Shown here is a 407-nucleotide RNA from Streptomyces bingchenggensis, a member of the family "Bacterial RNase P class A". The literature on the family includes a 1998 paper in Annu Rev Biochem by Frank and Pace, "Ribonuclease P: unity and diversity in a tRNA processing ribozyme". The family's consensus secondary structure is taken from published work. It scores 275 bits against the family's covariance model. Taxonomically the source falls in Streptomyces bingchenggensis (Bacteria, Actinomycetota, Kitasatosporales, Streptomycetaceae). It is annotated as a ribozyme.

[Rfam]
RNA sequence: CGAGCCGGCCGGGCGGUCGCGUCGGGGUCCUUCGGGAUCCCGCCGAGGAACGUCCGGGCUCCAUACGGCAGGGUGGUGGGUAACGCCCACCCGGGGUGACCCGCGGGACAGUGCCACAGAAAACAGACCGCCGGGAGCCGCGAGGCUUCCCGGUAAGGGUGAAACGGUGGUGUAAGAGACCACCAGCGUCCGAGGUGACUCGGACGGCUCGGUAAACCCCACCCGGAGCAAGGUCAAGAGGAGCCGCCUCCCGGCGGCUCUGCGCGGACGAUCGAGGGCUGCCCGCCCGAGUCCGCGGGUAGACCGCACGAGACCGGCGGCAACGUCGGUCCUAGAUGGAUGGCCGCCGCCCCAGGGGCCGUAAGGGCCCUGGGGAACAGAACCCGGCGUACAGGCCGACUCGUCCG
Numbered sequence: 001c002g003a004g005c006c007g008g009c010c011g012g013g014c015g016g017u018c019g020c021g022u023c024g025g026g027g028u029c030c031u032u033c034g035g036g037a038u039c040c041c042g043c044c045g046a047g048g049a050a051c052g053u054c055c056g057g058g059c060u061c062c063a064u065a066c067g068g069c070a071g072g073g074u075g076g077u078g079g080g081u082a083a084c085g086c087c088c089a090c091c092c093g094g095g096g097u098g099a100c101c102c103g104c105g106g107g108a109c110a111g112u113g114c115c116a117c118a119g120a121a122a123a124c125a126g127a128c129c130g131c132c133g134g135g136a137g138c139c140g141c142g143a144g145g146c147u148u149c150c151c152g153g154u155a156a157g158g159g160u161g162a163a164a165c166g167g168u169g170g171u172g173u174a175a176g177a178g179a180c181c182a183c184c185a186g187c188g189u190c191c192g193a194g195g196u197g198a199c200u201c202g203g204a205c206g207g208c209u210c211g212g213u214a215a216a217c218c219c220c221a222c223c224c225g226g227a228g229c230a231a232g233g234u235c236a237a238g239a240g241g242a243g244c245c246g247c248c249u250c251c252c253g254g255c256g257g258c259u260c261u262g263c264g265c266g267g268a269c270g271a272u273c274g275a276g277g278g279c280u281g282c283c284c285g286c287c288c289g290a291g292u293c294c295g296c297g298g299g300u301a302g303a304c305c306g307c308a309c310g311a312g313a314c315c316g317g318c319g320g321c322a323a324c325g326u327c328g329g330u331c332c333u334a335g336a337u338g339g340a341u342g343g344c345c346g347c348c349g350c351c352c353c354a355g356g357g358g359c360c361g362u363a364a365g366g367g368c369c370c371u372g373g374g375g376a377a378c379a380g381a382a383c384c385c386g387g388c389g390u391a392c393a394g395g396c397c398g399a400c401u402c403g404u405c406c407g
Stems, first nucleotide, its partner, number of pairs: 001403004006398005011392001012348007020045002023042006050390003054387005059228004067283003071224005076090005091105001092103004106219002111217002113213003128158002130154008166184006186208001187206008232305004264296006276288004312331008